[Rfam]
RNA sequence: AAAAGGAGCAAUACCCACCUCUUGAGAGACCAAGAAAGAGGUUAUUGCUCCUUUAUUU
Numbered sequence: 001a002a003a004a005g006g007a008g009c010a011a012u013a014c015c016c017a018c019c020u021c022u023u024g025a026g027a028g029a030c031c032a033a034g035a036a037a038g039a040g041g042u043u044a045u046u047g048c049u050c051c052u053u054u055a056u057u058u
Stems, first nucleotide, its partner, number of pairs: 002054012015041001020035005

A member of the RNA family "Plastid-psbA-3 3UTR RNA" from Eucommia ulmoides, 58 nucleotides long. From the family's description: Plastid psbA-3 is a non-coding RNA (ncRNA) present in plastids. It was identified in inverted repeat sequences in the 3 prime untranslate region (3UTR) of photosystem II quinone-binding protein (psbA). The family's consensus secondary structure was predicted with LocARNA. Clan: Plastid-psbA 3UTR RNA clan.